Shown here is a 312-nucleotide sequence from Haloquadratum walsbyi, a member of the family "Archaeal signal recognition particle RNA". It is annotated as a non-coding RNA gene. Lineage of the source: Archaea > Methanobacteriota > Halobacteria > Halobacteriales > Haloquadratum. On this family, see Wild et al., Curr Opin Struct Biol 2002: "Towards the structure of the mammalian signal recognition particle". It is one of the family's seed sequences.
Nucleotides: 312
Base pairs, nucleotide, nucleotide: 003310004309005308006307007306008305011066012065013064014063015034016033017031018030019029020028039062040061041060042059043058072302073301074300075299079295080294081293082292083290090285091284092283093282094281095280096279097278098277099276101271102270103269104268105267108264109263110262113259114258120255121254122253123252124251125250126249127245128244129243130242131241132240133239134238135236136235137234138233139231140230141229142180144178145177146176147175148174152169153168154167155166156165157164158163183227184226185225186224187223188222189221195218196217197216202211203210204209
Number, partner (000 for none) and nucleotide at each position: 001000g002000u003310g004309u005308g006307g007306a008305c009000u010000a011066g012065g013064u014063u015034g016033g017031g018030c019029a020028g021000u022000u023000a024000g025000g026000c027000c028020c029019u030018g031017c032000u033016c034015u035000u036000c037000a038000a039062c040061c041060c042059a043058c044000c045000a046000u047000u048000u049000c050000g051000g052000u053000c054000u055000u056000g057000a058043g059042u060041g061040g062039g063014a064013a065012c066011c067000a068000a069000a070000u071000c072302c073301g074300g075299g076000u077000g078000c079295g080294u081293u082292c083290g084000g085000u086000c087000a088000g089000a090285c091284c092283g093282g094281u095280g096279c097278a098277g099276g100000c101271c102270c103269c104268g105267g106000a107000a108264g109263c110262c111000a112000a113259c114258u115000a116000a117000g118000a119000a120255a121254c122253c123252u124251c125250g126249u127245c128244c129243u130242u131241c132240g133239g134238g135236g136235a137234c138233g139231g140230c141229g142180g143000u144178c145177c146176g147175u148174u149000g150000a151000c152169g153168c154167u155166g156165a157164c158163c159000g160000c161000a162000g163158g164157g165156u166155c167154a168153g169152u170000c171000c172000g173000a174148g175147a176146c177145g178144g179000u180142u181000c182000g183227u184226c185225g186224c187223c188222g189221g190000u191000a192000u193000c194000c195218c196217g197216u198000c199000a200000g201000g202211c203210g204209c205000g206000g207000a208000a209204g210203c211202g212000a213000g214000c215000a216197g217196c218195g219000a220000a221189c222188u223187g224186g225185u226184g227183a228000a229141c230140g231139u232000u233138c234137g235136u236135c237000g238134c239133u240132c241131g242130a243129a244128g245127g246000g247000c248000c249126g250125c251124g252123g253122g254121g255120u256000g257000g258114a259113g260000g261000a262110g263109g264108c265000a266000a267105c268104u269103g270102g271101g272000a273000c274000u275000c276099c277098c278097u279096g280095u281094a282093u283092c284091g285090g286000a287000a288000c289000g290083c291000c292082g293081a294080g295079c296000a297000a298000c299075c300074c301073u302072g303000u304000u305008g306007u307006c308005c309004g310003c311000u312000a